A member of the RNA family "U11 spliceosomal RNA" from Sciurus vulgaris, 131 nucleotides long.
[Rfam]
RNA sequence: AAAAAGGGCUUCUGUCAUGAGUGGCACACGUAGGGCAACUCGAUUGCUCUUCGUGCGGAAUCGACAUCAAGAUAUCAGCCAGGGCUGUCAUCAUUAAAAGACUUGAAUGGACCAAAAGAUCUUCUUUCAAG
Numbered sequence: 001a002a003a004a005a006g007g008g009c010u011u012c013u014g015u016c017a018u019g020a021g022u023g024g025c026a027c028a029c030g031u032a033g034g035g036c037a038a039c040u041c042g043a044u045u046g047c048u049c050u051u052c053g054u055g056c057g058g059a060a061u062c063g064a065c066a067u068c069a070a071g072a073u074a075u076c077a078g079c080c081a082g083g084g085c086u087g088u089c090a091u092c093a094u095u096a097a098a099a100g101a102c103u104u105g106a107a108u109g110g111a112c113c114a115a116a117a118g119a120u121c122u123u124c125u126u127u128c129a130a131g
Base pairs, nucleotide, nucleotide: 008086010084011083012082013026014025015024016023017022027055028054029053030052032050033049034048035047036046037045038044057080058079060075061074104129105128106127107126109125110124111123

It scores 48 bits against the family's covariance model. Rfam classes the family as a spliceosomal small nuclear RNA. Rfam links the family to the GO terms pre-mRNA 5'-splice site binding, U11 snRNP and mRNA 5'-splice site recognition.